[Rfam]
RNA sequence: UGCAGGAGUAGAAGCGUUCAGCGGCCCCGCCGCCCGGAAAUUGCUCCAACG
Numbered sequence: 001u002g003c004a005g006g007a008g009u010a011g012a013a014g015c016g017u018u019c020a021g022c023g024g025c026c027c028c029g030c031c032g033c034c035c036g037g038a039a040a041u042u043g044c045u046c047c048a049a050c051g
Stems, first nucleotide, its partner, number of pairs: 005047006015036001018038002021033005
Rfam assigns this 51-nucleotide RNA sequence from Cupriavidus sp. USMAA2-4 to the family "Xanthine riboswitch aptamer (NMT1 RNA)".
The match comes from Rfam's covariance-model search (51 bits).
Gene Ontology term of the family: purine nucleobase binding.